Purine riboswitch aptamer: a 101-nucleotide RNA from Paenibacillus solanacearum. The organism belongs to Paenibacillus, within Bacteria. Rfam's curators write: Riboswitches are metabolite binding domains within certain messenger RNAs that serve as precision sensors for their corresponding targets.
RNA sequence: AAUCAAGGGAAUAACAAGUUUCGUAUAAUCCCGGGAAUGGGCCCGGGAGUUUCUACGAGGUCACCGUAAAUGAUCUGGCUACGAACAAGAAAUGACGGUUC
Numbered sequence: 001a002a003u004c005a006a007g008g009g010a011a012u013a014a015c016a017a018g019u020u021u022c023g024u025a026u027a028a029u030c031c032c033g034g035g036a037a038u039g040g041g042c043c044c045g046g047g048a049g050u051u052u053c054u055a056c057g058a059g060g061u062c063a064c065c066g067u068a069a070a071u072g073a074u075c076u077g078g079c080u081a082c083g084a085a086c087a088a089g090a091a092a093u094g095a096c097g098g099u100u101c
Stems, first nucleotide, its partner, number of pairs: 020085006029048007058076006